The record is a 194-nucleotide sequence from Debaryomyces hansenii, which matches "Small nucleolar RNA snR34" in Rfam. The base pairs follow the family's consensus structure, which was predicted with WAR. The match comes from Rfam's covariance-model search (44 bits). It is annotated as an H/ACA-box small nucleolar RNA. Its family is annotated with RNA processing and nucleolus in the Gene Ontology.
[Rfam]
RNA sequence: AAUCAAAAAGCUUAUUAAAGCAAGGGAAAAUUUGCCACGGCGAGAUAAUGUAUAUUGUCAAGUUAUACUCGUUGCCAUUUAUUUAUAUAAAUUUCAUUUCCCGAGAUAAGAAUCAUCCCUAUAGGAAGUUUGGAAUCCGUUGGGUCUUUUAAGUGAGGCGAUGGAUUCUGAAUGUCGAAAAAUGGGAUACAUAA
Numbered sequence: 001a002a003u004c005a006a007a008a009a010g011c012u013u014a015u016u017a018a019a020g021c022a023a024g025g026g027a028a029a030a031u032u033u034g035c036c037a038c039g040g041c042g043a044g045a046u047a048a049u050g051u052a053u054a055u056u057g058u059c060a061a062g063u064u065a066u067a068c069u070c071g072u073u074g075c076c077a078u079u080u081a082u083u084u085a086u087a088u089a090a091a092u093u094u095c096a097u098u099u100c101c102c103g104a105g106a107u108a109a110g111a112a113u114c115a116u117c118c119c120u121a122u123a124g125g126a127a128g129u130u131u132g133g134a135a136u137c138c139g140u141u142g143g144g145u146c147u148u149u150u151a152a153g154u155g156a157g158g159c160g161a162u163g164g165a166u167u168c169u170g171a172a173u174g175u176c177g178a179a180a181a182a183u184g185g186g187a188u189a190c191a192u193a194a
Stems, first nucleotide, its partner, number of pairs: 025084003039073006046067002051065002054063002128173004133168001135166004144159005